[Rfam]
RNA sequence: GUUUGAGGGUGAGAAUCCCUCAUGCUAUUUGAUCAAGGUUUCCUGGGCAAGGUUCGUCCACCCAGGGUUAGUCAGGACCUAAGGCGAGGCCGAUAGGCGUAGUCGAUGGACAACAGGUUGAUAUUCCUGUACCGAUUAGUUAGUGAUGGAGUGACGGAGAAAGAUAGUGUAUCCCAGGCGUUGGUUGUCCUGGGCUAAGCGCAAAGGUGGUAGAGUUGGCAAAUCCGCUCUAUAUUCAACAUUGAAGCGUGAUGGGGAGUGAACGGUUCGCCUAGUAACGAAGUACAUGACUCUAUGCUUCCAAGAAAAGCUUCUAACUUAAUAACUAAUCGCCUGUACCUAGAACGAACACACGUGAUCAAGGAGAAAAUCCUAAGGCAAG
Number, nucleotide and partner (000 for none) at each position: 001g000002u000003u000004u022005g021006a020007g019008g018009g017010u000011g000012a000013g000014a000015a000016u000017c009018c008019c007020u006021c005022a004023u380024g379025c378026u377027a000028u000029u000030u000031g360032a359033u358034c357035a000036a000037g340038g339039u000040u000041u000042c066043c065044u064045g063046g062047g061048c000049a000050a000051g059052g058053u000054u000055c000056g000057u000058c052059c051060a000061c047062c046063c045064a044065g043066g042067g000068u000069u000070a000071g000072u000073c336074a335075g334076g333077a000078c109079c108080u000081a000082a000083g104084g103085c102086g000087a100088g000089g098090c097091c096092g000093a000094u000095a000096g091097g090098c089099g000100u087101a000102g085103u084104c083105g000106a000107u000108g079109g078110a000111c000112a000113a130114c129115a128116g127117g126118u000119u000120g000121a000122u000123a000124u000125u000126c117127c116128u115129g114130u113131a000132c000133c332134g331135a330136u329137u328138a327139g326140u325141u324142a323143g318144u317145g000146a000147u000148g314149g313150a312151g311152u310153g000154a000155c000156g301157g300158a299159g298160a000161a000162a294163g293164a292165u000166a000167g288168u287169g286170u285171a284172u000173c194174c193175c192176a191177g190178g189179c000180g000181u000182u000183g000184g000185u000186u000187g000188u000189c178190c177191u176192g175193g174194g173195c255196u254197a000198a000199g250200c249201g248202c247203a000204a000205a000206g243207g242208u241209g000210g233211u232212a231213g230214a229215g228216u227217u000218g226219g225220c000221a000222a000223a000224u000225c219226c218227g216228c215229u214230c213231u212232a211233u210234a000235u000236u000237c000238a000239a000240c000241a208242u207243u206244g000245a000246a000247g202248c201249g200250u199251g000252a000253u000254g196255g195256g000257g000258a000259g279260u278261g000262a276263a000264c000265g000266g000267u000268u000269c000270g000271c000272c000273u000274a000275g000276u262277a000278a260279c259280g000281a000282a000283g000284u171285a170286c169287a168288u167289g000290a000291c000292u164293c163294u162295a000296u000297g000298c159299u158300u157301c156302c000303a000304a000305g000306a000307a000308a000309a000310g152311c151312u150313u149314c148315u000316a000317a144318c143319u000320u000321a000322a000323u142324a141325a140326c139327u138328a137329a136330u135331c134332g133333c076334c075335u074336g073337u000338a000339c038340c037341u000342a000343g000344a000345a000346c355347g354348a000349a000350c000351a000352c000353a000354c347355g346356u000357g034358a033359u032360c031361a000362a374363g373364g372365a371366g000367a000368a000369a000370a000371u365372c364373c363374u362375a000376a000377g026378g025379c024380a023381a000382g000